[Rfam]
RNA sequence: AAGGGUUCAAGACCAUAGCAGAAGCACUCAUAGUAUGGCCCUGUCAGAUUCGAAGGAAUCUGUGAAUUUUGCU
Numbered sequence: 001a002a003g004g005g006u007u008c009a010a011g012a013c014c015a016u017a018g019c020a021g022a023a024g025c026a027c028u029c030a031u032a033g034u035a036u037g038g039c040c041c042u043g044u045c046a047g048a049u050u051c052g053a054a055g056g057a058a059u060c061u062g063u064g065a066a067u068u069u070u071g072c073u
Base pairs, nucleotide, nucleotide: 011040013038014037017073018072019071020070021069022068023067024036026034045062046061047060048059049058050057051056
RNA: Mammalian CPEB3 ribozyme
Organism: Crocodylus porosus